[Rfam]
A member of the RNA family "c-di-AMP riboswitch aptamer (ydaO/yuaA leader)" from Nonomuraea cypriaca, 138 nucleotides long.
RNA sequence: CGCCUGUGACCGCUGAGUCCGCCGCGAGCGGAACCGGGGACCCAAGCCCCCAUGGGGUGAAUCGGCACCAAGGUGCAGUAGGGCAGCUUCCUCGCCCGAACCCGUCAGCUAACCCGGUAAGCGGUAGGGAAGCAAGGA
Numbered sequence: 001c002g003c004c005u006g007u008g009a010c011c012g013c014u015g016a017g018u019c020c021g022c023c024g025c026g027a028g029c030g031g032a033a034c035c036g037g038g039g040a041c042c043c044a045a046g047c048c049c050c051c052a053u054g055g056g057g058u059g060a061a062u063c064g065g066c067a068c069c070a071a072g073g074u075g076c077a078g079u080a081g082g083g084c085a086g087c088u089u090c091c092u093c094g095c096c097c098g099a100a101c102c103c104g105u106c107a108g109c110u111a112a113c114c115c116g117g118u119a120a121g122c123g124g125u126a127g128g129g130a131a132g133c134a135a136g137g138a
Stems, first nucleotide, its partner, number of pairs: 011123004018032005033118006043054002055103003063078001065076002081097004
Taxonomically the source falls in Nonomuraea (Bacteria, Bacillati, Streptosporangiales, Streptosporangiaceae). Rfam links the family to the GO terms regulation of gene expression and cyclic-di-AMP binding.